[Rfam]
RNA sequence: CAGAUGAAGCUCACCCAUAGAAAGCAUGAGCGACUGCUUGCAGGCGGCGAAGGCUUUCUAUGAGGGGAGCAAACGAACAUGAGCAAGAAGGACGAUAGUCCGGAUUGCGAAUGGUCGUUACGAUUUCGAGAGUGCGUAGCACGGAGAAAUCGAUUAAGAUA
Numbered sequence: 001c002a003g004a005u006g007a008a009g010c011u012c013a014c015c016c017a018u019a020g021a022a023a024g025c026a027u028g029a030g031c032g033a034c035u036g037c038u039u040g041c042a043g044g045c046g047g048c049g050a051a052g053g054c055u056u057u058c059u060a061u062g063a064g065g066g067g068a069g070c071a072a073a074c075g076a077a078c079a080u081g082a083g084c085a086a087g088a089a090g091g092a093c094g095a096u097a098g099u100c101c102g103g104a105u106u107g108c109g110a111a112u113g114g115u116c117g118u119u120a121c122g123a124u125u126u127c128g129a130g131a132g133u134g135c136g137u138a139g140c141a142c143g144g145a146g147a148a149a150u151c152g153a154u155u156a157a158g159a160u161a
Stems, first nucleotide, its partner, number of pairs: 002160001005156003011068002014065001017061009027051001030048002032045001034043003073118004078113003083108004090101004121152007132142004
This 161-nucleotide RNA belongs to the Rfam family "Clostridiales-1 RNA".
The sequence is in the family's curated seed alignment.
The base pairs follow the family's consensus structure, which is taken from published work.